mir-145 microRNA precursor family: an 85-nucleotide RNA sequence from Nothobranchius furzeri.
RNA sequence: GCCUCCUUUCUGGGGUCCAGUUUUCCCAGGAAUCCCUCUACUCAACAAAGGGGAUUCCUGGAAUUACUGAUCCCGGCACAGAGGC
Numbered sequence: 001g002c003c004u005c006c007u008u009u010c011u012g013g014g015g016u017c018c019a020g021u022u023u024u025c026c027c028a029g030g031a032a033u034c035c036c037u038c039u040a041c042u043c044a045a046c047a048a049a050g051g052g053g054a055u056u057c058c059u060g061g062a063a064u065u066a067c068u069g070a071u072c073c074c075g076g077c078a079c080a081g082a083g084g085c
Base pairs, nucleotide, nucleotide: 018069019068020067021066024063026061027060028059029058030057031056032055033054034053035052036051037050
Dot-bracket structure: .................((((..(.((((((((((((............)))))))))))).)..))))................
A reference for the family is Chen et al. (2005), "The developmental miRNA profiles of zebrafish as determined by small RNA cloning", Genes Dev. It scores 61 bits against the family's covariance model. Lineage of the source: Eukaryota > Euacanthomorphacea > Atherinomorphae > Nothobranchiidae > Nothobranchius.